[Rfam]
RNA sequence: ACAGCUUCUGCUUCGGCCAUUGAAGGAGCGUUCACGUCACGGUCCCUGUCAGGUAUCUGUUUACCUGCGAAUCCUUCU
Number, nucleotide and partner (000 for none) at each position: 001a000002c000003a000004g000005c000006u000007u000008c000009u000010g000011c000012u000013u000014c000015g044016g043017c042018c041019a000020u000021u000022g077023a076024a075025g074026g073027a072028g040029c000030g038031u000032u000033c000034a000035c000036g000037u000038c030039a000040c028041g018042g017043u016044c015045c000046c000047u000048g000049u000050c067051a066052g065053g064054u063055a062056u000057c000058u000059g000060u000061u000062u055063a054064c053065c052066u051067g050068c000069g000070a000071a000072u027073c026074c025075u024076u023077c022078u000
Rfam assigns this 78-nucleotide RNA from Laticauda laticaudata to the family "Mammalian CPEB3 ribozyme". A search with the family's covariance model found it, with a score of 53 bits. Its family is annotated with RNA nuclease activity in the Gene Ontology. Lineage of the source: Eukaryota > Opisthokonta > Euteleostomi > Serpentes > Laticauda. A reference for the family is Salehi-Ashtiani et al. (2006), "A genomewide search for ribozymes reveals an HDV-like sequence in the human CPEB3 gene", Science. Pairs were carried over by alignment from the consensus structure, which is taken from published work.